[Rfam]
RNA sequence: GUUGAUGAAAUGAAUAUGCCGUAGACAGAAGGUGCGCGUUUGAAUGAACGCUGCUUAAUAUCCCUCCGAGGCGUGUAAUGUACGAAAGAGGAAAGGUAUCUUUCCUUUGACGAUAGAGCAUUAUGCCCUCGUGAGUCUGCGAGGGCAUUUUCCUUUUUUCGA
Numbered sequence: 001g002u003u004g005a006u007g008a009a010a011u012g013a014a015u016a017u018g019c020c021g022u023a024g025a026c027a028g029a030a031g032g033u034g035c036g037c038g039u040u041u042g043a044a045u046g047a048a049c050g051c052u053g054c055u056u057a058a059u060a061u062c063c064c065u066c067c068g069a070g071g072c073g074u075g076u077a078a079u080g081u082a083c084g085a086a087a088g089a090g091g092a093a094a095g096g097u098a099u100c101u102u103u104c105c106u107u108u109g110a111c112g113a114u115a116g117a118g119c120a121u122u123a124u125g126c127c128c129u130c131g132u133g134a135g136u137c138u139g140c141g142a143g144g145g146c147a148u149u150u151u152c153c154u155u156u157u158u159u160c161g162a
Stems, first nucleotide, its partner, number of pairs: 028066002031063002034054003124147010
The record is a 162-nucleotide RNA sequence from Brevibacillus panacihumi, which matches "Ribosomal protein L10 leader" in Rfam. Rfam classes the family as a cis-regulatory leader. Rfam describes the family as follows. This family is a putative r-protein leader autoregulatory structure found in B. subtilis and other low-GC Gram-positive bacteria. It is located in the 5' untranslated regions of mRNAs encoding ribosomal proteins L10 and L12 (rplJ-rplL). A Rho-independent transcription terminator structure that is probably involved in regulation is included at the 3' end. Pairs were carried over by alignment from the consensus structure, which was predicted with CMfinder. A reference for the family is Zengel and Lindahl (1994), "Diverse mechanisms for regulating ribosomal protein synthesis in Escherichia coli", Prog Nucleic Acid Res Mol Biol.